About this RNA
Shown here is a 135-nucleotide RNA sequence from Ochotona princeps, a member of the family "Small nucleolar RNA SNORA22". It is annotated as an H/ACA-box small nucleolar RNA. Its family is annotated with nucleolus and RNA processing in the Gene Ontology.
[Rfam]
RNA sequence: UUGCACAGUGAACACCCAAGUGUGCUUGCCACUUGGGGGGGUGGCUUUGAUUCUGUGCUACAGCAACGUCUGUCCUUUUCCUCUACAUUGAAAGGCGCUUUGUCCUUUGAAUGUAUUCAGAAAGUCAGCACAUGA
Numbered sequence: 001u002u003g004c005a006c007a008g009u010g011a012a013c014a015c016c017c018a019a020g021u022g023u024g025c026u027u028g029c030c031a032c033u034u035g036g037g038g039g040g041g042u043g044g045c046u047u048u049g050a051u052u053c054u055g056u057g058c059u060a061c062a063g064c065a066a067c068g069u070c071u072g073u074c075c076u077u078u079u080c081c082u083c084u085a086c087a088u089u090g091a092a093a094g095g096c097g098c099u100u101u102g103u104c105c106u107u108u109g110a111a112u113g114u115a116u117u118c119a120g121a122a123a124g125u126c127a128g129c130a131c132a133u134g135a
Stems, first nucleotide, its partner, number of pairs: 003058006010052001013049002016044003020034001022032003060076001063073003082121003086113004090108003094104003

ACA22 is a member of the H/ACA class of snoRNA that guide the sites of modification of uridines to pseudouridines.
NCBI's taxonomy places the organism under Eukaryota, Gnathostomata, Mammalia, Eutheria, Ochotona.